[Rfam]
RNA sequence: AUUGGAUCAAUGAUGUUACUGAGAAACUGCGUUAUCUAUCUGGAUAUUCCUACAAAAGGAUUGAAGAUAAAUAAUAUAUCCUGAGAUCCUGA
Number, nucleotide and partner (000 for none) at each position: 001a000002u091003u000004g089005g088006a087007u086008c000009a000010a000011u000012g000013a000014u000015g000016u000017u000018a000019c000020u000021g000022a000023g000024a000025a000026a000027c000028u000029g000030c000031g000032u000033u000034a000035u000036c000037u000038a000039u000040c000041u000042g000043g000044a000045u000046a000047u000048u000049c000050c000051u000052a000053c000054a000055a000056a000057a000058g000059g000060a000061u000062u000063g000064a000065a000066g000067a000068u000069a000070a000071a000072u000073a000074a000075u000076a000077u000078a000079u000080c000081c000082u000083g000084a000085g000086a007087u006088c005089c004090u000091g002092a000
The record is a 92-nucleotide RNA sequence from Nyssa sinensis, which matches "Small nucleolar RNA snoR27" in Rfam. Rfam links the family to the GO terms nucleolus and RNA processing. Its Rfam clan is "snR68 clan".